[Rfam]
RNA sequence: GGAAGCAGAGAGGUAACUGGUGUGCCUACCGGUCUUCAAAACCGUGUUGCGGCUUGUAGUCGUGGGUGGGUUCGAUUCCCAUAUGCUUCC
Numbered sequence: 001g002g003a004a005g006c007a008g009a010g011a012g013g014u015a016a017c018u019g020g021u022g023u024g025c026c027u028a029c030c031g032g033u034c035u036u037c038a039a040a041a042c043c044g045u046g047u048u049g050c051g052g053c054u055u056g057u058a059g060u061c062g063u064g065g066g067u068g069g070g071u072u073c074g075a076u077u078c079c080c081a082u083a084u085g086c087u088u089c090c
Base pairs, nucleotide, nucleotide: 001090002089003088004087005086006085007084009082012027013026016023017022028047029046030044031043032042033041049063050062051061052060053059067081068080069079070078
RNA: Selenocysteine transfer RNA
Organism: Lacrimispora xylanisolvens